[Rfam]
RNA sequence: GCCCAGACGAGCCUCGGUGGUCCGGGGUGCGGGCUUCAAACCCGUAGCUGAUUGACGUCAGAGUGGUUCGAUUCCACCUUCUGGGC
Numbered sequence: 001g002c003c004c005a006g007a008c009g010a011g012c013c014u015c016g017g018u019g020g021u022c023c024g025g026g027g028u029g030c031g032g033g034c035u036u037c038a039a040a041c042c043c044g045u046a047g048c049u050g051a052u053u054g055a056c057g058u059c060a061g062a063g064u065g066g067u068u069c070g071a072u073u074c075c076a077c078c079u080u081c082u083g084g085g086c
Stems, first nucleotide, its partner, number of pairs: 001086007009078001012027006028046006048061005063077004